Shown here is an 88-nucleotide RNA sequence from Mesonia phycicola, a member of the family "Flavo-1 RNA". The family's consensus secondary structure is taken from published work. The family's RNA type in Rfam is small RNA.
RNA sequence: GAAGAACCAAACGUUAGGGGUUGUAACGGCAUCCUUUUUUUGCUUUAGCAAGUGGCAAAAAAAGAUAUAGUGUAAAACCCGACCAAAA
Number, nucleotide and partner (000 for none) at each position: 001g000002a000003a000004g000005a000006a000007c000008c000009a000010a000011a000012c000013g000014u000015u000016a000017g080018g079019g078020g000021u076022u075023g000024u000025a000026a071027c070028g000029g000030c000031a066032u065033c064034c000035u000036u000037u061038u060039u059040u058041u057042g056043c055044u054045u000046u000047a000048g000049c000050a000051a000052g000053u000054g044055g043056c042057a041058a040059a039060a038061a037062a000063a000064g033065a032066u031067a000068u000069a000070g027071u026072g000073u000074a000075a022076a021077a000078c019079c018080c017081g000082a000083c000084c000085a000086a000087a000088a000